RNA: Bacterial large subunit ribosomal RNA, nucleotides 15 to 614
RNA sequence: GUGCACAUGGUGGAUGCCUUGGCAUCGAGAGCCGAUGAAGGACGUUGGAGUCUGCGAAAUGCCCCGGGGAGUUGACAACCGAGCUGUGAUCCGGGGGUGUCCGAAUGGGGAAACCCACUCAGAGGAAAGUCUGAGUACCUGCGCCUGAACACAUAGGGCGUUUGGAGGGAACGUGGGGAAGUGAAACAUCUCAGUACCCACAGGAAGAGAAAACAACAGUGAUUCCGGUAGUAGUGGCGAGCGAAACCGGACCUAGGCUAAACCUUGGGUGUGUGAUAGCCGGCAGGCGUUGCAUCCAGGGGGUUGUGGGACCGCACAGACUGUUCUGCCGAGCAGUCAAAGAGUCAUAAACCAUGAGUGAAGGUGAAGCCGACUGGAAAGUCGUGACACAGAGGGUGAGAUCCCCGUAACCGUAAGCUCAUGGCUCUUGUGCGUCAUCCCGAGUAACACCGAACCCCUGAAAUUCGGUGUGAAUCUGGCGGGACCACCCGCUAAGCCUAAAUACUCCUCGAUGACCGAUAGCGGACUAGUACCGUGAGGGAAAGGUGAAAAGUACCCCGGGAGGGGAGUGAAAUAGUACCUGAAACCGUGUGCAUACAA
Numbered sequence: 001g002u003g004c005a006c007a008u009g010g011u012g013g014a015u016g017c018c019u020u021g022g023c024a025u026c027g028a029g030a031g032c033c034g035a036u037g038a039a040g041g042a043c044g045u046u047g048g049a050g051u052c053u054g055c056g057a058a059a060u061g062c063c064c065c066g067g068g069g070a071g072u073u074g075a076c077a078a079c080c081g082a083g084c085u086g087u088g089a090u091c092c093g094g095g096g097g098u099g100u101c102c103g104a105a106u107g108g109g110g111a112a113a114c115c116c117a118c119u120c121a122g123a124g125g126a127a128a129g130u131c132u133g134a135g136u137a138c139c140u141g142c143g144c145c146u147g148a149a150c151a152c153a154u155a156g157g158g159c160g161u162u163u164g165g166a167g168g169g170a171a172c173g174u175g176g177g178g179a180a181g182u183g184a185a186a187c188a189u190c191u192c193a194g195u196a197c198c199c200a201c202a203g204g205a206a207g208a209g210a211a212a213a214c215a216a217c218a219g220u221g222a223u224u225c226c227g228g229u230a231g232u233a234g235u236g237g238c239g240a241g242c243g244a245a246a247c248c249g250g251a252c253c254u255a256g257g258c259u260a261a262a263c264c265u266u267g268g269g270u271g272u273g274u275g276a277u278a279g280c281c282g283g284c285a286g287g288c289g290u291u292g293c294a295u296c297c298a299g300g301g302g303g304u305u306g307u308g309g310g311a312c313c314g315c316a317c318a319g320a321c322u323g324u325u326c327u328g329c330c331g332a333g334c335a336g337u338c339a340a341a342g343a344g345u346c347a348u349a350a351a352c353c354a355u356g357a358g359u360g361a362a363g364g365u366g367a368a369g370c371c372g373a374c375u376g377g378a379a380a381g382u383c384g385u386g387a388c389a390c391a392g393a394g395g396g397u398g399a400g401a402u403c404c405c406c407g408u409a410a411c412c413g414u415a416a417g418c419u420c421a422u423g424g425c426u427c428u429u430g431u432g433c434g435u436c437a438u439c440c441c442g443a444g445u446a447a448c449a450c451c452g453a454a455c456c457c458c459u460g461a462a463a464u465u466c467g468g469u470g471u472g473a474a475u476c477u478g479g480c481g482g483g484a485c486c487a488c489c490c491g492c493u494a495a496g497c498c499u500a501a502a503u504a505c506u507c508c509u510c511g512a513u514g515a516c517c518g519a520u521a522g523c524g525g526a527c528u529a530g531u532a533c534c535g536u537g538a539g540g541g542a543a544a545g546g547u548g549a550a551a552a553g554u555a556c557c558c559c560g561g562g563a564g565g566g567g568a569g570u571g572a573a574a575u576a577g578u579a580c581c582u583g584a585a586a587c588c589g590u591g592u593g594c595a596u597a598c599a600a
Stems, first nucleotide, its partner, number of pairs: 001596010016581001017546002021517002023514007030506002032168002040102003043056003062096007071084003107116003117136007138165002141161006172203001173201005183190002213220002223502001224251005234242002255499004263301011308441003313434004350426001352424008363412003369385001371384004388392001394406003447471008478493005533540002556567004